A member of the RNA family "Nuclear RNase P" from Globodera rostochiensis, 307 nucleotides long. The match comes from Rfam's covariance-model search (125 bits). By type it is a ribozyme. The organism belongs to Globodera, within Eukaryota.
RNA sequence: UUGGCUGGAAGCUGACUGAGAGGAACCACCAAAAGGUGCUUUGGUCGCCUGCACAAAGUUCCUGGGAAGGUCUGAGAAAUGGCCCCAAUCCCUUCGGGGGUUGCAUUCCCUAGCCGGGAAACUCUCGAGUGAGGGUGGUGCUGUACCAGAAAAGGUCGGGUUGGCCGUGUGGGCACGGGACAGCGGGACAAGACGCCGUGACGGCUGAUCCCGUCCCGUGUCCGCGUUGGGAGACAGUGCCGGUGCCAGCAAUGCAAUUGAGUGCGAUAGUGAAAGCCAAACACAAUUCAGACUACUCUUCGGCCAA
Numbered sequence: 001u002u003g004g005c006u007g008g009a010a011g012c013u014g015a016c017u018g019a020g021a022g023g024a025a026c027c028a029c030c031a032a033a034a035g036g037u038g039c040u041u042u043g044g045u046c047g048c049c050u051g052c053a054c055a056a057a058g059u060u061c062c063u064g065g066g067a068a069g070g071u072c073u074g075a076g077a078a079a080u081g082g083c084c085c086c087a088a089u090c091c092c093u094u095c096g097g098g099g100g101u102u103g104c105a106u107u108c109c110c111u112a113g114c115c116g117g118g119a120a121a122c123u124c125u126c127g128a129g130u131g132a133g134g135g136u137g138g139u140g141c142u143g144u145a146c147c148a149g150a151a152a153a154g155g156u157c158g159g160g161u162u163g164g165c166c167g168u169g170u171g172g173g174c175a176c177g178g179g180a181c182a183g184c185g186g187g188a189c190a191a192g193a194c195g196c197c198g199u200g201a202c203g204g205c206u207g208a209u210c211c212c213g214u215c216c217c218g219u220g221u222c223c224g225c226g227u228u229g230g231g232a233g234a235c236a237g238u239g240c241c242g243g244u245g246c247c248a249g250c251a252a253u254g255c256a257a258u259u260g261a262g263u264g265c266g267a268u269a270g271u272g273a274a275a276g277c278c279a280a281a282c283a284c285a286a287u288u289c290a291g292a293c294u295a296c297u298c299u300u301c302g303g304c305c306a307a
Base pairs, nucleotide, nucleotide: 001307002306003305004304007301008300009299013274017270021063022062023061024060025059034050035049036048037047038046039044072291073290074289075288076287081247082246083245106120107119108118109117110116121136122135123134124133125132126131137241138240139239140238141237142236143235157226158225